[Rfam]
Shown here is a 75-nucleotide sequence from Dufourea novaeangliae, a member of the family "mir-278 microRNA precursor family". Pairs were carried over by alignment from the consensus structure, which was predicted with RNAalifold. The source organism's lineage runs through Eukaryota, Protostomia, Pterygota, Halictidae and Dufourea. The literature on the family includes a 2007 paper in Genome Res by Stark et al., "Systematic discovery and characterization of fly microRNAs using 12 Drosophila genomes".

RNA sequence: GAUGCGCCCGGAUGAGGUCUUCAUCGGCCGUAAUCGGAUAUCCACGGGUCGGUGGGACUUUCGUCCGUUUGCAAG
Numbered sequence: 001g002a003u004g005c006g007c008c009c010g011g012a013u014g015a016g017g018u019c020u021u022c023a024u025c026g027g028c029c030g031u032a033a034u035c036g037g038a039u040a041u042c043c044a045c046g047g048g049u050c051g052g053u054g055g056g057a058c059u060u061u062c063g064u065c066c067g068u069u070u071g072c073a074a075g
Stems, first nucleotide, its partner, number of pairs: 003073004009067007016059005022054002025051005